[Rfam]
RNA sequence: GCUGCUUCAUGACAGGAAGGACUGAAAUGUCUUGACGCACUGUGGUCUUUCCUCGAUGUUCCUGCAGC
Numbered sequence: 001g002c003u004g005c006u007u008c009a010u011g012a013c014a015g016g017a018a019g020g021a022c023u024g025a026a027a028u029g030u031c032u033u034g035a036c037g038c039a040c041u042g043u044g045g046u047c048u049u050u051c052c053u054c055g056a057u058g059u060u061c062c063u064g065c066a067g068c
Stems, first nucleotide, its partner, number of pairs: 001068005014053010029036002
Background
Rfam assigns this 68-nucleotide sequence from Nannospalax galili to the family "Selenocysteine insertion sequence 1". About the family: The incorporation of selenocysteine into a protein sequence is directed by an in-frame UGA codon (usually a stop codon) within the coding region of the mRNA. Selenoprotein mRNAs contain a conserved secondary structure in the 3' UTR that is required for the distinction of UGA stop from UGA selenocysteine. The selenocysteine insertion sequence (SECIS) is around 60 nt in length and adopts a hairpin structure which is sufficiently well-defined and conserved to act as a computational screen for selenoprotein genes. The family's consensus secondary structure is taken from published work. It scores 41 bits against the family's covariance model. The family's RNA type in Rfam is cis-regulatory element.